[Rfam]
RNA sequence: UCCAUCGUGAGGUGGAAUCUGAAGGAAGCCUGCGGCAAAACUCUGGUCUGACGAACAGAAAUCACAUAUAAGGCUUACUUAAAUCGGGUGAGCAUGCAUAACAAAGUUCAUCGAAAGCAAACUCAAACUUAAAGUAAACAAGGAUAAAAGUGCAGUUGAUAGACCUUGGAGAAGGAAAUUUCU
Numbered sequence: 001u002c003c004a005u006c007g008u009g010a011g012g013u014g015g016a017a018u019c020u021g022a023a024g025g026a027a028g029c030c031u032g033c034g035g036c037a038a039a040a041c042u043c044u045g046g047u048c049u050g051a052c053g054a055a056c057a058g059a060a061a062u063c064a065c066a067u068a069u070a071a072g073g074c075u076u077a078c079u080u081a082a083a084u085c086g087g088g089u090g091a092g093c094a095u096g097c098a099u100a101a102c103a104a105a106g107u108u109c110a111u112c113g114a115a116a117g118c119a120a121a122c123u124c125a126a127a128c129u130u131a132a133a134g135u136a137a138a139c140a141a142g143g144a145u146a147a148a149a150g151u152g153c154a155g156u157u158g159a160u161a162g163a164c165c166u167u168g169g170a171g172a173a174g175g176a177a178a179u180u181u182c183u
Base pairs, nucleotide, nucleotide: 001016002015003014004013005012006011028183032179036175042170043169044168045167046164047163048162049161050160062159063158064157067154073151074150075149079146084141086124087123088122089121092118093117095115
Rfam assigns this 183-nucleotide sequence from Clostridium magnum to the family "Group II catalytic intron D1-D4-3". A search with the family's covariance model found it, with a score of 83 bits.